This 110-nucleotide RNA from Paenibacillus ferrarius belongs to the Rfam family "Guanidine-I riboswitch aptamer". Taxonomically the source falls in Paenibacillus (Bacteria, Bacillota, Bacilli, Caryophanales). The match comes from Rfam's covariance-model search (91 bits).
RNA sequence: ACACAUGUUUUCUAGGGUUCCGCGGCAGAAUGAAGGCUGUUGGUCUGGUCCAAGAGAAGACACACGAUGGCGCUUCAUCGUGCACACGGAGGGAUAAAAGCCCGGGAGGA
Numbered sequence: 001a002c003a004c005a006u007g008u009u010u011u012c013u014a015g016g017g018u019u020c021c022g023c024g025g026c027a028g029a030a031u032g033a034a035g036g037c038u039g040u041u042g043g044u045c046u047g048g049u050c051c052a053a054g055a056g057a058a059g060a061c062a063c064a065c066g067a068u069g070g071c072g073c074u075u076c077a078u079c080g081u082g083c084a085c086a087c088g089g090a091g092g093g094a095u096a097a098a099a100g101c102c103c104g105g106g107a108g109g110a
Base pairs, nucleotide, nucleotide: 007061008060009059010058011057012056015051016050020048021047022045023042024041025040026039027038028037063082064081065080066079067078068077069076085105087108091103092102093101